The record is an 84-nucleotide RNA from Pseudobacteroides cellulosolvens, which matches "c-di-GMP-I riboswitch aptamer" in Rfam. The source organism's lineage runs through Bacteria, Bacillati, Bacillota, Eubacteriales and Pseudobacteroides cellulosolvens. A search with the family's covariance model found it, with a score of 75 bits. Pairs were carried over by alignment from the consensus structure, which is taken from published work.
[Rfam]
RNA sequence: UACUGAUAAUGACAAACCUAUCGAAAGAUAGGGACGUAAAGCCCAUGGGUCUAAGGUUUAUUCUAUGACAGCCGGGUUGCCAAA
Numbered sequence: 001u002a003c004u005g006a007u008a009a010u011g012a013c014a015a016a017c018c019u020a021u022c023g024a025a026a027g028a029u030a031g032g033g034a035c036g037u038a039a040a041g042c043c044c045a046u047g048g049g050u051c052u053a054a055g056g057u058u059u060a061u062u063c064u065a066u067g068a069c070a071g072c073c074g075g076g077u078u079g080c081c082a083a084a
Stems, first nucleotide, its partner, number of pairs: 012037002017032006040078004046074003049069003056063001